[Rfam]
RNA sequence: GGUCACGAGUAUCAGCGUUCUGUAGCCCCGGCUUGCUGAUCGGCAACCCUCCCAGCGGUGGGGUGCCCCGGGUGACGACCCGGCGAACCGGAAUUCCCCGGUACGCAAGCGCUGUGG
Number, nucleotide and partner (000 for none) at each position: 001g080002g079003u078004c077005a000006c000007g000008a000009g041010u000011a040012u039013c038014a037015g036016c035017g000018u000019u000020c000021u000022g000023u000024a033025g032026c000027c000028c000029c000030g000031g000032c025033u024034u000035g016036c015037u014038g013039a012040u011041c009042g067043g066044c065045a000046a000047c063048c062049c061050u000051c058052c057053c000054a000055g000056c000057g052058g051059u000060g000061g049062g048063g047064u000065g044066c043067c042068c000069c000070g000071g000072g000073u000074g000075a000076c000077g004078a003079c002080c001081c000082g000083g106084c105085g104086a000087a102088c101089c100090g099091g098092a000093a000094u000095u000096c000097c000098c091099c090100g089101g088102u087103a000104c085105g084106c083107a000108a000109g000110c000111g000112c000113u000114g000115u000116g000117g000
This 117-nucleotide RNA sequence from Nocardia stercoris belongs to the Rfam family "SAM (S-adenosyl methionine) riboswitch aptamer". Its Rfam clan is "SAM clan". NCBI's taxonomy places the organism under Bacteria, Bacillati, Actinomycetes, Nocardiaceae, Nocardia. Rfam's curators write: SAM-IV is a mRNA element that regulates gene expression via direct sensing of S-adenosylmethionine (SAM or AdoMet).